A member of the RNA family "glmS glucosamine-6-phosphate activated ribozyme aptamer" from Sporomusa acidovorans, 156 nucleotides long. Lineage of the source: Bacteria > Bacillati > Sporomusaceae > Sporomusa > Sporomusa acidovorans. Rfam classes the family as a riboswitch. The base pairs follow the family's consensus structure, which is taken from published work. A reference for the family is Jansen et al. (2006), "Backbone and nucleobase contacts to glucosamine-6-phosphate in the glmS ribozyme", Nat Struct Mol Biol.
RNA sequence: ACUAAACCAAAAGCGCUGGUGCUUGGAAAUUGGUUCCAAGCAGACGAGGUAGAGGUUCAUCGAGCAGUCAGCGGAUGCCUCUCGGCGGUUGCCGUCGUGAGCUUGCCGACAAAUCCGCAGGGUGAUCUGCGGCACAAAACGGCAGCGUGCAACAAA
Numbered sequence: 001a002c003u004a005a006a007c008c009a010a011a012a013g014c015g016c017u018g019g020u021g022c023u024u025g026g027a028a029a030u031u032g033g034u035u036c037c038a039a040g041c042a043g044a045c046g047a048g049g050u051a052g053a054g055g056u057u058c059a060u061c062g063a064g065c066a067g068u069c070a071g072c073g074g075a076u077g078c079c080u081c082u083c084g085g086c087g088g089u090u091g092c093c094g095u096c097g098u099g100a101g102c103u104u105g106c107c108g109a110c111a112a113a114u115c116c117g118c119a120g121g122g123u124g125a126u127c128u129g130c131g132g133c134a135c136a137a138a139a140c141g142g143c144a145g146c147g148u149g150c151a152a153c154a155a156a
Stems, first nucleotide, its partner, number of pairs: 020042008051082005060071001062069002083097006103145006115132007